[Rfam]
A member of the RNA family "SAM (S-adenosyl methionine) riboswitch aptamer" from Actinopolymorpha pittospori, 118 nucleotides long.
On this family, see Weinberg et al., RNA 2008: "The aptamer core of SAM-IV riboswitches mimics the ligand-binding site of SAM-I riboswitches".
Pairs were carried over by alignment from the consensus structure, which is taken from published work.

RNA sequence: GGUCAUGAGUUCCAGCGUCAAGCCCCGGCUGGCUGGGCGGCAACCCCUCGUCCGCGUAGGGGUGCCCCGGGUGAGGACACGGCCGUUGCUCAAAGUGGCGCAGCGGCAAGCGCGGGCC
Numbered sequence: 001g002g003u004c005a006u007g008a009g010u011u012c013c014a015g016c017g018u019c020a021a022g023c024c025c026c027g028g029c030u031g032g033c034u035g036g037g038c039g040g041c042a043a044c045c046c047c048u049c050g051u052c053c054g055c056g057u058a059g060g061g062g063u064g065c066c067c068c069g070g071g072u073g074a075g076g077a078c079a080c081g082g083c084c085g086u087u088g089c090u091c092a093a094a095g096u097g098g099c100g101c102a103g104c105g106g107c108a109a110g111c112g113c114g115g116g117c118c
Base pairs, nucleotide, nucleotide: 002078003077004076009038011037012036013035014034015033016032021030022029039066040065041064044062045061046060049056082107083106084105085104086103087102088101089100091098